Rfam assigns this 143-nucleotide RNA sequence from Takifugu rubripes to the family "Small nucleolar RNA SNORA29".
A search with the family's covariance model found it, with a score of 54 bits.
The source organism's lineage runs through Eukaryota, Actinopterygii, Eurypterygia, Euacanthomorphacea and Takifugu.
Clan: SNORA20 clan.
About the family: ACA29 is a member of the H/ACA class of snoRNA that guide the sites of modification of uridines to pseudouridines.
The base pairs follow the family's consensus structure, which was predicted with PFOLD.

RNA sequence: AGUCCUGUUUUAGUACCACUUAUCUGCAUUUUAGUACAGAUGUGUGGCUAUGCUAACAGGACAGAGAAGCUGUCCGUCAGCAUCUGAAGGAGUCCAGCGGUCUUCAUUCAGCAGCUCCUAAUGAAAUGAUGGCACAAUAAGAA
Numbered sequence: 001a002g003u004c005c006u007g008u009u010u011u012a013g014u015a016c017c018a019c020u021u022a023u024c025u026g027c028a029u030u031u032u033a034g035u036a037c038a039g040a041u042g043u044g045u046g047g048c049u050a051u052g053c054u055a056a057c058a059g060g061a062c063a064g065a066g067a068a069g070c071u072g073u074c075c076g077u078c079a080g081c082a083u084c085u086g087a088a089g090g091a092g093u094c095c096a097g098c099g100g101u102c103u104u105c106a107u108u109c110a111g112c113a114g115c116u117c118c119u120a121a122u123g124a125a126a127u128g129a130u131g132g133c134a135c136a137a138u139a140a141g142a143a
Base pairs, nucleotide, nucleotide: 004060005059006058007057016047017046018045019044076130077129078128079127